Source information:
This 233-nucleotide RNA belongs to the Rfam family "Streptomyces sRNA 4677". A search with the family's covariance model found it, with a score of 111 bits. Pairs were carried over by alignment from the consensus structure. By type it is a small RNA. Rfam's curators write: Located in the intergenic region between anti-sigma factor SCO4677 gene and a putative regulatory protein gene SCO4676. scr4677 expression requires the SCO4677 activity and scr4677 sRNA itself seem to affect the levels of the SCO4676-associated transcripts.
RNA sequence: GGAGCCGGUGCGGCAGGCGGUCAAAGACAAAUAACCUUGGGAAAGAACCUUCCAAACCAACCAAACCCCGCGUACGUCACUCGCUGGAGUGAAUCCGCCCAACACGGGUGGCGCGGGGGCGGUUUGGCCGGGCACGCUCGCCGUUGACAACCGCAGAUAUGCGACGGCCCCCGCCGGGAGUGCGAAUCCCAGUGCGAGGGCCUGACCAUCGAGGAAGAGAAAAGGUCUUCCCC
Numbered sequence: 001g002g003a004g005c006c007g008g009u010g011c012g013g014c015a016g017g018c019g020g021u022c023a024a025a026g027a028c029a030a031a032u033a034a035c036c037u038u039g040g041g042a043a044a045g046a047a048c049c050u051u052c053c054a055a056a057c058c059a060a061c062c063a064a065a066c067c068c069c070g071c072g073u074a075c076g077u078c079a080c081u082c083g084c085u086g087g088a089g090u091g092a093a094u095c096c097g098c099c100c101a102a103c104a105c106g107g108g109u110g111g112c113g114c115g116g117g118g119g120c121g122g123u124u125u126g127g128c129c130g131g132g133c134a135c136g137c138u139c140g141c142c143g144u145u146g147a148c149a150a151c152c153g154c155a156g157a158u159a160u161g162c163g164a165c166g167g168c169c170c171c172c173g174c175c176g177g178g179a180g181u182g183c184g185a186a187u188c189c190c191a192g193u194g195c196g197a198g199g200g201c202c203u204g205a206c207c208a209u210c211g212a213g214g215a216a217g218a219g220a221a222a223a224g225g226u227c228u229u230c231c232c233c
Stems, first nucleotide, its partner, number of pairs: 007210004017071003077092006107142005166202005172196003176190004213231005